[Rfam]
The record is a 98-nucleotide sequence from Dioscorea zingiberensis, which matches "Small nucleolar RNA Z266" in Rfam.
It scores 52 bits against the family's covariance model.
The family's consensus secondary structure was predicted with PFOLD.

RNA sequence: UAUUGGCAGGAAUGAUGAAACUUAUUAGAUGUGUGAAGGAGAUUUCUCCCUCCCAUGAACGAACACUCGAGGCAUAUUGAUAUUCUGACCUGCUAUUC
Numbered sequence: 001u002a003u004u005g006g007c008a009g010g011a012a013u014g015a016u017g018a019a020a021c022u023u024a025u026u027a028g029a030u031g032u033g034u035g036a037a038g039g040a041g042a043u044u045u046c047u048c049c050c051u052c053c054c055a056u057g058a059a060c061g062a063a064c065a066c067u068c069g070a071g072g073c074a075u076a077u078u079g080a081u082a083u084u085c086u087g088a089c090c091u092g093c094u095a096u097u098c
Stems, first nucleotide, its partner, number of pairs: 002097001004095007